Overview: Plastid-rpl20 3UTR RNA: an 84-nucleotide sequence from Lycoris squamigera. Lineage of the source: Eukaryota > Magnoliopsida > Mesangiospermae > Liliopsida > Lycoris. Plastid rpl20 is a non-coding RNA (ncRNA) recognised in plastids. It is one of the family's seed sequences.

RNA sequence: GAAUUCCCCGGAGAAUGGACUCCGGGAAGAUAGAAUAAAAAAAAAUUAAGAUGAUUAAGUAGUAGGAAUGAACGAACAUCUUAA
Numbered sequence: 001g002a003a004u005u006c007c008c009c010g011g012a013g014a015a016u017g018g019a020c021u022c023c024g025g026g027a028a029g030a031u032a033g034a035a036u037a038a039a040a041a042a043a044a045a046u047u048a049a050g051a052u053g054a055u056u057a058a059g060u061a062g063u064a065g066g067a068a069u070g071a072a073c074g075a076a077c078a079u080c081u082u083a084a
Stems, first nucleotide, its partner, number of pairs: 004028002007026007071082002